[Rfam]
RNA sequence: CCGCACAGCCGGGAAGUUAGCGGUGUCCUGUACCUGCAAUCCGCUAUAGCAGGGGUGAUAUUCUGCCUCGGGUGCUUUUUUGCAGAGCUGCCCCCCGUAAGUGGCGUUGAAGCUUGGGUCUUACGCAAUGGGAAUCCAUGAACCGUGUCAGGGCAGGAAUGCAGCAGCACUAAGUGGAAACUCCUGUGUGCCGUGAGGGCGCCUGGGCCGAGUUAACUGCGAGGGUAACGUCUGUGAGGAGCAUUCAAAGCAGAAUGUGCGG
Numbered sequence: 001c002c003g004c005a006c007a008g009c010c011g012g013g014a015a016g017u018u019a020g021c022g023g024u025g026u027c028c029u030g031u032a033c034c035u036g037c038a039a040u041c042c043g044c045u046a047u048a049g050c051a052g053g054g055g056u057g058a059u060a061u062u063c064u065g066c067c068u069c070g071g072g073u074g075c076u077u078u079u080u081u082g083c084a085g086a087g088c089u090g091c092c093c094c095c096c097g098u099a100a101g102u103g104g105c106g107u108u109g110a111a112g113c114u115u116g117g118g119u120c121u122u123a124c125g126c127a128a129u130g131g132g133a134a135u136c137c138a139u140g141a142a143c144c145g146u147g148u149c150a151g152g153g154c155a156g157g158a159a160u161g162c163a164g165c166a167g168c169a170c171u172a173a174g175u176g177g178a179a180a181c182u183c184c185u186g187u188g189u190g191c192c193g194u195g196a197g198g199g200c201g202c203c204u205g206g207g208c209c210g211a212g213u214u215a216a217c218u219g220c221g222a223g224g225g226u227a228a229c230g231u232c233u234g235u236g237a238g239g240a241g242c243a244u245u246c247a248a249a250g251c252a253g254a255a256u257g258u259g260c261g262g
Stems, first nucleotide, its partner, number of pairs: 001262006008056003011029004016024003033053005062254005068248001070246006077240010089227002093224002096221003101217002103214003112208008120197006126188002129186005135178005145170004153162003